A member of the RNA family "Eukaryotic large subunit ribosomal RNA" from Coccidioides immitis, 492 nucleotides of a longer RNA. A reference for the family is Yusupov et al. (2001), "Crystal structure of the ribosome at 5.5 A resolution", Science.
[Rfam]
RNA sequence: CCUGCCGAAGUUUCCCUCAGGAUAGCAGUAACGUUUUCAGUUUUAUGAGGUAAAGCGAAUGAUUAGAGGCCUUGGGGUUGAAACAACCUUAACCUAUUCUCAAACUUUAAAUAUGUAAGAAGCCCUUGUUACUUAAGUGAACGUGGGCAUUAGAAUGGAUCGUUACUAGUGGGCCAUUUUUGGUAAGCAGAACUGGCGAUGCGGGAUGAACCGAACGCGAGGUUAAGGUGCCGGAAUGCACGCUCAUCAGACACCACAAAAGGUGUUAGUUCAUCUAGACAGCCCGACGGUGGCCAUGGAAGUCGGAAUCCGCUAAGGAGUGUGUAACAACUCACGGGCCGAAUGAACUAGCCCUGAAAAUGGAUGGCGCUCAAGCGUGCUACCCAUACCUCGCCGUCGGGGUAGAAACGAAGCCCCGACGAGUAGGCAGGCGUGGAGGUUUGUGACGAAGCCUUGGGAGUGAUCCCGGGUCGAACAGCCUCUAGUGCAGAU
Numbered sequence: 001c002c003u004g005c006c007g008a009a010g011u012u013u014c015c016c017u018c019a020g021g022a023u024a025g026c027a028g029u030a031a032c033g034u035u036u037u038c039a040g041u042u043u044u045a046u047g048a049g050g051u052a053a054a055g056c057g058a059a060u061g062a063u064u065a066g067a068g069g070c071c072u073u074g075g076g077g078u079u080g081a082a083a084c085a086a087c088c089u090u091a092a093c094c095u096a097u098u099c100u101c102a103a104a105c106u107u108u109a110a111a112u113a114u115g116u117a118a119g120a121a122g123c124c125c126u127u128g129u130u131a132c133u134u135a136a137g138u139g140a141a142c143g144u145g146g147g148c149a150u151u152a153g154a155a156u157g158g159a160u161c162g163u164u165a166c167u168a169g170u171g172g173g174c175c176a177u178u179u180u181u182g183g184u185a186a187g188c189a190g191a192a193c194u195g196g197c198g199a200u201g202c203g204g205g206a207u208g209a210a211c212c213g214a215a216c217g218c219g220a221g222g223u224u225a226a227g228g229u230g231c232c233g234g235a236a237u238g239c240a241c242g243c244u245c246a247u248c249a250g251a252c253a254c255c256a257c258a259a260a261a262g263g264u265g266u267u268a269g270u271u272c273a274u275c276u277a278g279a280c281a282g283c284c285c286g287a288c289g290g291u292g293g294c295c296a297u298g299g300a301a302g303u304c305g306g307a308a309u310c311c312g313c314u315a316a317g318g319a320g321u322g323u324g325u326a327a328c329a330a331c332u333c334a335c336g337g338g339c340c341g342a343a344u345g346a347a348c349u350a351g352c353c354c355u356g357a358a359a360a361u362g363g364a365u366g367g368c369g370c371u372c373a374a375g376c377g378u379g380c381u382a383c384c385c386a387u388a389c390c391u392c393g394c395c396g397u398c399g400g401g402g403u404a405g406a407a408a409c410g411a412a413g414c415c416c417c418g419a420c421g422a423g424u425a426g427g428c429a430g431g432c433g434u435g436g437a438g439g440u441u442u443g444u445g446a447c448g449a450a451g452c453c454u455u456g457g458g459a460g461u462g463a464u465c466c467c468g469g470g471u472c473g474a475a476c477a478g479c480c481u482c483u484a485g486u487g488c489a490g491a492u
Base pairs, nucleotide, nucleotide: 001431002430003429004428005427006426011024013022014021015020027167028166029165030164031163032162033161041120042119043118044117045116046115047114053108054106055105060102061101062100065097067095068094069093072092073091074090075089076088077087079085122148123147124146125145127143128142129141130140173197174196175195176194178192179191180190181189182188202213203212204211217394218393219392220391221390223388227384228383229382236381238380241377242376243375261355262354263353265352266351267350268349269348270347271346272345273344274343282339283338284337285336286335288312289311290310294306295305313317318333322331323330395421396420397419398418399417400416401415402414403413432487434484435483436482437481438480439479440478441477443476444475451471452470457466458465459464
Lineage of the source: Eukaryota > Fungi > Ascomycota > Eurotiomycetes > Coccidioides immitis.